The record is a 115-nucleotide RNA from Apilactobacillus ozensis, which matches "Ribosomal protein L10 leader" in Rfam.
RNA sequence: AAUAUGUGUUUCAGUCUACCUAAGACUCAGGUGAGUUUUGCUCUUAAUAUCCUGACGAGGAGAAUUUAAUAUUCUCUCUAUGUUUUGGUAGGCAUAGGGAUUUUUUAUUAAAUCC
Dot-bracket structure: ...........................((((.(((.....))).......))))....................((((((((((......))))))))))...............
Numbered sequence: 001a002a003u004a005u006g007u008g009u010u011u012c013a014g015u016c017u018a019c020c021u022a023a024g025a026c027u028c029a030g031g032u033g034a035g036u037u038u039u040g041c042u043c044u045u046a047a048u049a050u051c052c053u054g055a056c057g058a059g060g061a062g063a064a065u066u067u068a069a070u071a072u073u074c075u076c077u078c079u080a081u082g083u084u085u086u087g088g089u090a091g092g093c094a095u096a097g098g099g100a101u102u103u104u105u106u107a108u109u110a111a112a113u114c115c
Stems, first nucleotide, its partner, number of pairs: 028054004033043003075100010
By type it is a cis-regulatory leader.